This 47-nucleotide RNA from Bifidobacterium reuteri belongs to the Rfam family "L31-Actinobacteria ribosomal protein leader".

RNA sequence: UAGGUUCCGGUUCACGCUAUGCCAUUGGGGCAUGGCGACCCGGGUCC
Numbered sequence: 001u002a003g004g005u006u007c008c009g010g011u012u013c014a015c016g017c018u019a020u021g022c023c024a025u026u027g028g029g030g031c032a033u034g035g036c037g038a039c040c041c042g043g044g045u046c047c
Stems, first nucleotide, its partner, number of pairs: 003047002007043004015037009
The family is grouped with related families in Rfam's "Ribosomal Protein L31 Leader clan". The source organism's lineage runs through Bacteria, Actinomycetota, Bifidobacteriales, Bifidobacteriaceae and Bifidobacterium reuteri. The base pairs follow the family's consensus structure, which is taken from published work. On this family, see Eckert and Weinberg, BMC Microbiol 2020: "Discovery of 20 novel ribosomal leader candidates in bacteria and archaea".